A member of the RNA family "c-di-GMP-I riboswitch aptamer" from Pseudodesulfovibrio piezophilus, 79 nucleotides long. The organism belongs to Pseudodesulfovibrio piezophilus, within Bacteria. It scores 56 bits against the family's covariance model.

[Rfam]
RNA sequence: UUUUUUAUUGGCCAAAUCCAUCGUGAGGUGGAGACGGAAAGCCUACGGGUCUCUUUGUUGAGAUGGCCGGGUUGCCGAU
Numbered sequence: 001u002u003u004u005u006u007a008u009u010g011g012c013c014a015a016a017u018c019c020a021u022c023g024u025g026a027g028g029u030g031g032a033g034a035c036g037g038a039a040a041g042c043c044u045a046c047g048g049g050u051c052u053c054u055u056u057g058u059u060g061a062g063a064u065g066g067c068c069g070g071g072u073u074g075c076c077g078a079u
Stems, first nucleotide, its partner, number of pairs: 012037002017032006040073004046069003049064005
Dot-bracket structure: ...........((...((((((....))))))...))..((((..((((((((......)))))..)))))))......